[Rfam]
RNA sequence: UGAGACAAGCGACAAAAGGUCAUGCGGGCUGCGCUUGCGCAGGUAAGCAUGGCUUUGUGGCGCGCAAAACACCGAAAAGCAGCCAUUUUUCGCAGAAAAAUGAGCGGAUUUGAGGUGUUUUUAGGAUUGCGGGAGUACGAAGUGCGGAGCAAUCCGUGUCUCA
Numbered sequence: 001u002g003a004g005a006c007a008a009g010c011g012a013c014a015a016a017a018g019g020u021c022a023u024g025c026g027g028g029c030u031g032c033g034c035u036u037g038c039g040c041a042g043g044u045a046a047g048c049a050u051g052g053c054u055u056u057g058u059g060g061c062g063c064g065c066a067a068a069a070c071a072c073c074g075a076a077a078a079g080c081a082g083c084c085a086u087u088u089u090u091c092g093c094a095g096a097a098a099a100a101u102g103a104g105c106g107g108a109u110u111u112g113a114g115g116u117g118u119u120u121u122u123a124g125g126a127u128u129g130c131g132g133g134a135g136u137a138c139g140a141a142g143u144g145c146g147g148a149g150c151a152a153u154c155c156g157u158g159u160c161u162c163a
Base pairs, nucleotide, nucleotide: 001163002162003161004160005159006158007157010062011061013059016056017055018054019053020052021051022050023049024048025047028044029042030041031040032039033038066121067120068119069118070117071116072115073114076111077110078109082105083104084102085101086100087099088098089097090096091095124155125154126153127152128151129150130149135145136144137143138142
Description:
Rfam assigns this 163-nucleotide sequence from Catenibacillus scindens to the family "Clostridiales-1 RNA". It is annotated as a small RNA.